Mason-Pfizer monkey virus packaging signal: a 331-nucleotide RNA sequence from Octodon degus. For this family Rfam cites "Mutational analysis of the predicted secondary RNA structure of the Mason-Pfizer monkey virus packaging signal" (Mustafa et al., Virus Res, 2004). It scores 64 bits against the family's covariance model. Rfam classes the family as a cis-regulatory element. About the family: This family represents a group of sequences that are related to the Mason-Pfizer monkey virus (MPMV) packaging signal. The packaging signal is located in the 5' UTR and is required for specific RNA encapsidation.
RNA sequence: UGGCGCCCAGCAAGUGGGACAUCUGGUAUGGAGGAUUCAGUGACAGAACAGUCUGAGAGAGCGCGCGCAAGAGAAAGCCAGUAAAAGAGAGAGCCAGCAAGAGAGUAAAAGAGGCAAAAGAGAGAAUAAAAGAGGUCUGCGCUGUAGUUGCCUGCUGCGACGUCUGAACCUCGGUAAGUGGACCGCACACCUUUCCCCUUUCCCUUGACAAUGGACAGGCAUUAAGUGAAUGAGAUAUAAAUUUUGAGUAAAGCAUUAAAGGCGCGAGGAGUAAAGGUUAAAAUUAAGGAUUUGUUUCAAUAUUUUGAAUAUAUUAAAUAUGUUUGCCCAU
Numbered sequence: 001u002g003g004c005g006c007c008c009a010g011c012a013a014g015u016g017g018g019a020c021a022u023c024u025g026g027u028a029u030g031g032a033g034g035a036u037u038c039a040g041u042g043a044c045a046g047a048a049c050a051g052u053c054u055g056a057g058a059g060a061g062c063g064c065g066c067g068c069a070a071g072a073g074a075a076a077g078c079c080a081g082u083a084a085a086a087g088a089g090a091g092a093g094c095c096a097g098c099a100a101g102a103g104a105g106u107a108a109a110a111g112a113g114g115c116a117a118a119a120g121a122g123a124g125a126a127u128a129a130a131a132g133a134g135g136u137c138u139g140c141g142c143u144g145u146a147g148u149u150g151c152c153u154g155c156u157g158c159g160a161c162g163u164c165u166g167a168a169c170c171u172c173g174g175u176a177a178g179u180g181g182a183c184c185g186c187a188c189a190c191c192u193u194u195c196c197c198c199u200u201u202c203c204c205u206u207g208a209c210a211a212u213g214g215a216c217a218g219g220c221a222u223u224a225a226g227u228g229a230a231u232g233a234g235a236u237a238u239a240a241a242u243u244u245u246g247a248g249u250a251a252a253g254c255a256u257u258a259a260a261g262g263c264g265c266g267a268g269g270a271g272u273a274a275a276g277g278u279u280a281a282a283a284u285u286a287a288g289g290a291u292u293u294g295u296u297u298c299a300a301u302a303u304u305u306u307g308a309a310u311a312u313a314u315u316a317a318a319u320a321u322g323u324u325u326g327c328c329c330a331u
Stems, first nucleotide, its partner, number of pairs: 006018003023097005132172005139164001140162001143159005179217002183214003223258003226254002265307005271301002275293005316331001321326001